[Rfam]
RNA: Small nucleolar RNA snoR97
RNA sequence: UAUUUUUCUUAAGUCUCACUUUCAUUAAAUUUCAUAAAGUUAGUGUUGUUAUCAGCUUCUUCUCUUGAAUAUCCACCGAGAUUGGAGUUAAAUCGUAGCACUACAUGU
Number, nucleotide and partner (000 for none) at each position: 001u000002a000003u000004u000005u000006u000007u000008c000009u000010u000011a000012a000013g000014u000015c000016u000017c000018a000019c000020u000021u000022u000023c000024a000025u000026u000027a000028a000029a000030u000031u000032u000033c000034a000035u000036a000037a000038a000039g000040u000041u000042a102043g101044u100045g099046u098047u097048g096049u000050u000051a000052u000053c000054a089055g088056c087057u086058u085059c084060u000061u081062c080063u079064c078065u000066u000067g000068a000069a000070u000071a000072u000073c000074c000075a000076c000077c000078g064079a063080g062081a061082u000083u000084g059085g058086a057087g056088u055089u054090a000091a000092a000093u000094c000095g000096u048097a047098g046099c045100a044101c043102u042103a000104c000105a000106u000107g000108u000